UnaL2 LINE 3' element: a 54-nucleotide sequence from Megalops atlanticus.

[Rfam]
RNA sequence: UAACCUACUGUAUGUAAGUCGCUCUGGAUAAGAGCAUCUGCUAAAUGACAAUAA
Numbered sequence: 001u002a003a004c005c006u007a008c009u010g011u012a013u014g015u016a017a018g019u020c021g022c023u024c025u026g027g028a029u030a031a032g033a034g035c036a037u038c039u040g041c042u043a044a045a046u047g048a049c050a051a052u053a054a
Stems, first nucleotide, its partner, number of pairs: 013043001014041003021035005
Gene Ontology term of the family: transposition, RNA-mediated. The family's consensus secondary structure is taken from published work.